The record is a 163-nucleotide RNA from Stackebrandtia endophytica, which matches "c-di-AMP riboswitch aptamer (ydaO/yuaA leader)" in Rfam.
[Rfam]
RNA sequence: CGGACAACACCGCCGAAUCGCCAGACCCGCGGCGAACCGGGGACCCAGUCCCUGCGGGGUGAAUCCAUUGUGAAAGCCAGGCAAUGGUAGGGCGUUGAUCCACGGAUCACUUCUUCCCGCCCGAACCCGUCAGCUAACCCGGUAGGCGGAGAACGGAAGAAGG
Numbered sequence: 001c002g003g004a005c006a007a008c009a010c011c012g013c014c015g016a017a018u019c020g021c022c023a024g025a026c027c028c029g030c031g032g033c034g035a036a037c038c039g040g041g042g043a044c045c046c047a048g049u050c051c052c053u054g055c056g057g058g059g060u061g062a063a064u065c066c067a068u069u070g071u072g073a074a075a076g077c078c079a080g081g082c083a084a085u086g087g088u089a090g091g092g093c094g095u096u097g098a099u100c101c102a103c104g105g106a107u108c109a110c111u112u113c114u115u116c117c118c119g120c121c122c123g124a125a126c127c128c129g130u131c132a133g134c135u136a137a138c139c140c141g142g143u144a145g146g147c148g149g150a151g152a153a154c155g156g157a158a159g160a161a162g163g
Stems, first nucleotide, its partner, number of pairs: 011148004018035005036143006046056001057128003065087007090122004